RNA sequence: CAGAAAUUGGAGCUCCUUUCGGGCCAAAACAUUGAUUAGAAAAAGAAAAGAGUAAUUAAGCAACAAUUUCUGUUGGUAUAAUUCAUGCCUUGGACUGAAGGGAGCUCCUAUUUCUG
Numbered sequence: 001c002a003g004a005a006a007u008u009g010g011a012g013c014u015c016c017u018u019u020c021g022g023g024c025c026a027a028a029a030c031a032u033u034g035a036u037u038a039g040a041a042a043a044a045g046a047a048a049a050g051a052g053u054a055a056u057u058a059a060g061c062a063a064c065a066a067u068u069u070c071u072g073u074u075g076g077u078a079u080a081a082u083u084c085a086u087g088c089c090u091u092g093g094a095c096u097g098a099a100g101g102g103a104g105c106u107c108c109u110a111u112u113u114c115u116g
Stems, first nucleotide, its partner, number of pairs: 007110001009108010021096002024093004
Shown here is a 116-nucleotide RNA sequence from Rhynchospora breviuscula, a member of the family "MIR319 microRNA precursor family".
The match comes from Rfam's covariance-model search (61 bits).
NCBI's taxonomy places the organism under Eukaryota, Viridiplantae, Magnoliopsida, Cyperoideae, Rhynchospora.
Rfam 15.1 lists 168 matches to the family in 79 species.
Pairs were carried over by alignment from the consensus structure, which was predicted with RNAalifold.